RNA sequence: GAAUUUUCGACAGCGUCACCUCCUCCCGACCCUGUCGAAACGGACGGUCUCUUCUCCUCCCAGAAGACCCUCCAUAACCAACGAAACCCACCGCACCUCCUCCCGCGGUGGGUUUUGUUG
Numbered sequence: 001g002a003a004u005u006u007u008c009g010a011c012a013g014c015g016u017c018a019c020c021u022c023c024u025c026c027c028g029a030c031c032c033u034g035u036c037g038a039a040a041c042g043g044a045c046g047g048u049c050u051c052u053u054c055u056c057c058u059c060c061c062a063g064a065a066g067a068c069c070c071u072c073c074a075u076a077a078c079c080a081a082c083g084a085a086a087c088c089c090a091c092c093g094c095a096c097c098u099c100c101u102c103c104c105g106c107g108g109u110g111g112g113u114u115u116u117g118u119u120g
Stems, first nucleotide, its partner, number of pairs: 007038003011034003015030003043072002046069005084115011
RNA: Alphaproteobacterial ar14
Organism: Phyllobacterium sp. YR531